[Rfam]
RNA sequence: AUGGUAUGUAUGGCCACAGUAGAAGUACUCACAGCGUGGGGCUGGCAGAUUCCAAUGAAUCUGCAAAAUUCUGCU
Numbered sequence: 001a002u003g004g005u006a007u008g009u010a011u012g013g014c015c016a017c018a019g020u021a022g023a024a025g026u027a028c029u030c031a032c033a034g035c036g037u038g039g040g041g042c043u044g045g046c047a048g049a050u051u052c053c054a055a056u057g058a059a060u061c062u063g064c065a066a067a068a069u070u071c072u073g074c075u
Stems, first nucleotide, its partner, number of pairs: 013042001014039002018075007025037002046063007